The record is a 91-nucleotide sequence from Mycobacterium sp. MCS, which matches "Selenocysteine transfer RNA" in Rfam.
A reference for the family is Mizutani and Goto (2000), "Eukaryotic selenocysteine tRNA has the 9/4 secondary structure", FEBS Lett.
Its Rfam clan is "tRNA clan".
RNA sequence: GGAGGCGUAUCCGGUCUGGUGACCGGCGCGAUCUUCAAAAUCGUCGAACGGCAGGAUCUGUCGUUGGCGGGUUCGAUUCCCGUCCGCCUCC
Dot-bracket structure: (((((((.(.((((((....))))))((((((.......))))).).(((((.......)))))...((((.......))))).)))))))